[Rfam]
RNA sequence: GGGUGCUUGAGGCUUUUUGGGCUUUUGGGCAUUUUCAGGGUUCCAGAAAGACGAAAGCCCCAGGCGAUAUUACUAUCAACCUGAGGCCAGCGUAUGAACCCAGACAGUUCAAAUGUUAGCCUCUUCUUUGCAGGGAGGCAAGGAUAUGCUGACAAAUG
Numbered sequence: 001g002g003g004u005g006c007u008u009g010a011g012g013c014u015u016u017u018u019g020g021g022c023u024u025u026u027g028g029g030c031a032u033u034u035u036c037a038g039g040g041u042u043c044c045a046g047a048a049a050g051a052c053g054a055a056a057g058c059c060c061c062a063g064g065c066g067a068u069a070u071u072a073c074u075a076u077c078a079a080c081c082u083g084a085g086g087c088c089a090g091c092g093u094a095u096g097a098a099c100c101c102a103g104a105c106a107g108u109u110c111a112a113a114u115g116u117u118a119g120c121c122u123c124u125u126c127u128u129u130g131c132a133g134g135g136a137g138g139c140a141a142g143g144a145u146a147u148g149c150u151g152a153c154a155a156a157u158g
Stems, first nucleotide, its partner, number of pairs: 001061003005058004011052001013050009023040001026037001062082003066077004083123005090116004095111004127152002131148002

This 158-nucleotide RNA sequence from Kluyvera cryocrescens belongs to the Rfam family "sok antitoxin (CssrC)".
Pairs were carried over by alignment from the consensus structure, which is taken from published work.
On this family, see Peng et al., PLoS One 2011: "An integrated approach for finding overlooked genes in Shigella".
Rfam classes the family as an antitoxin RNA.
Rfam's curators write: Also identified in Shigella as CssrC.
Lineage of the source: Bacteria > Pseudomonadati > Gammaproteobacteria > Enterobacterales > Kluyvera.